RNA sequence: GAACUCCGGUUCCCUUUUAAAACGAAAAAAUCUUUCGCCUUUUACUAAAGAUUUCCGUGUAGGGGAGCACUCAAAGGAGUCUAGAAAUAUAAUUUUUUCAAUCGCCUGACCUUACUGGUCGGGCU
Numbered sequence: 001g002a003a004c005u006c007c008g009g010u011u012c013c014c015u016u017u018u019a020a021a022a023c024g025a026a027a028a029a030a031u032c033u034u035u036c037g038c039c040u041u042u043u044a045c046u047a048a049a050g051a052u053u054u055c056c057g058u059g060u061a062g063g064g065g066a067g068c069a070c071u072c073a074a075a076g077g078a079g080u081c082u083a084g085a086a087a088u089a090u091a092a093u094u095u096u097u098u099c100a101a102u103c104g105c106c107u108g109a110c111c112u113u114a115c116u117g118g119u120c121g122g123g124c125u
Stems, first nucleotide, its partner, number of pairs: 003080004009068008018059002028054008100125001104124006
U5 spliceosomal RNA: a 125-nucleotide RNA sequence from Acyrthosiphon pisum. The match comes from Rfam's covariance-model search (80 bits). A reference for the family is Zwieb (1997), "The uRNA database", Nucleic Acids Res. The source organism's lineage runs through Eukaryota, Opisthokonta, Arthropoda, Aphididae and Acyrthosiphon. Rfam classes the family as a spliceosomal small nuclear RNA. U5 RNA is a component of both types of known spliceosome. The precise function of this molecule is unknown, though it is known that the 5' loop is required for splice site selection and p220 binding, and that both the 3' stem-loop and the Sm site are important for Sm protein binding and cap methylation.